[Rfam]
A member of the RNA family "c-di-AMP riboswitch aptamer (ydaO/yuaA leader)" from Arthrobacter sp. ERGS1:01, 228 nucleotides long. Taxonomically the source falls in Arthrobacter (Bacteria, Bacillati, Actinomycetes, Micrococcaceae).
RNA sequence: CCGGACGUUGGGCUGAAAUACAUCAGGCAAGGACGGGGGAACCACAACCGGCGAAUUUCCUAUUCGUCUUGGGGUGAAGCCUGGUUGGCCGGCACUCGAAAUCCUUUGCGACGCAGUCCCUGCGACUGUGCCUUGGACAGACGUGUGCCGCGGACCGGGCCGGAUCAAAUGAAACACUCUCUGAUCCGAAUCCGACAGCUAACUCCGCAGGUGUCCAACAGAGAGGUA
Numbered sequence: 001c002c003g004g005a006c007g008u009u010g011g012g013c014u015g016a017a018a019u020a021c022a023u024c025a026g027g028c029a030a031g032g033a034c035g036g037g038g039g040a041a042c043c044a045c046a047a048c049c050g051g052c053g054a055a056u057u058u059c060c061u062a063u064u065c066g067u068c069u070u071g072g073g074g075u076g077a078a079g080c081c082u083g084g085u086u087g088g089c090c091g092g093c094a095c096u097c098g099a100a101a102u103c104c105u106u107u108g109c110g111a112c113g114c115a116g117u118c119c120c121u122g123c124g125a126c127u128g129u130g131c132c133u134u135g136g137a138c139a140g141a142c143g144u145g146u147g148c149c150g151c152g153g154a155c156c157g158g159g160c161c162g163g164a165u166c167a168a169a170u171g172a173a174a175c176a177c178u179c180u181c182u183g184a185u186c187c188g189a190a191u192c193c194g195a196c197a198g199c200u201a202a203c204u205c206c207g208c209a210g211g212u213g214u215c216c217a218a219c220a221g222a223g224a225g226g227u228a
Stems, first nucleotide, its partner, number of pairs: 012212003019031001034207005043071002072193003080159007162187006